The record is a 74-nucleotide RNA from Pipistrellus kuhlii, which matches "mir-9193 microRNA precursor family" in Rfam. It scores 59 bits against the family's covariance model. Rfam 15.1 lists 6,008 matches to the family in 8 species. The organism belongs to Pipistrellus, within Eukaryota. Rfam links the family to the GO terms RISC complex and miRNA-mediated post-transcriptional gene silencing.
RNA sequence: UGUGAACUCGGGAGGUCCUUCAGCCUGGAUUGUGAGAGGGUGCAGGCCAGGCCGAUGGACCCCACUUGUGCAUG
Numbered sequence: 001u002g003u004g005a006a007c008u009c010g011g012g013a014g015g016u017c018c019u020u021c022a023g024c025c026u027g028g029a030u031u032g033u034g035a036g037a038g039g040g041u042g043c044a045g046g047c048c049a050g051g052c053c054g055a056u057g058g059a060c061c062c063c064a065c066u067u068g069u070g071c072a073u074g
Stems, first nucleotide, its partner, number of pairs: 003072002006069001010065001012063001014061005020055002023052003027048002030045005